Rfam assigns this 132-nucleotide sequence from Agaricicola taiwanensis to the family "Alphaproteobacterial sRNA ar35". The source organism's lineage runs through Bacteria, Pseudomonadota, Rhodobacterales, Paracoccaceae and Agaricicola. A reference for the family is del Val et al. (2012), "A survey of sRNA families in alpha-proteobacteria", RNA Biol. The match comes from Rfam's covariance-model search (67 bits). Pairs were carried over by alignment from the consensus structure. Rfam classes the family as a small RNA.
RNA sequence: ACGGCAAGAGUUCGGCUGAGAACCUUCAAGCCGCGUAAGGCUAUAACGCUUCUGGUCCUUGACCACGGAUGUACUGGCACUGGCCAUGGAAGCGUCAGGAGAAGGUCGGGAAACCUCCCGGCCUUUUUUCUU
Numbered sequence: 001a002c003g004g005c006a007a008g009a010g011u012u013c014g015g016c017u018g019a020g021a022a023c024c025u026u027c028a029a030g031c032c033g034c035g036u037a038a039g040g041c042u043a044u045a046a047c048g049c050u051u052c053u054g055g056u057c058c059u060u061g062a063c064c065a066c067g068g069a070u071g072u073a074c075u076g077g078c079a080c081u082g083g084c085c086a087u088g089g090a091a092g093c094g095u096c097a098g099g100a101g102a103a104g105g106u107c108g109g110g111a112a113a114c115c116u117c118c119c120g121g122c123c124u125u126u127u128u129u130c131u132u
Stems, first nucleotide, its partner, number of pairs: 001036003010031003014027001046095006054085004060079002063077003097131004101126009111116001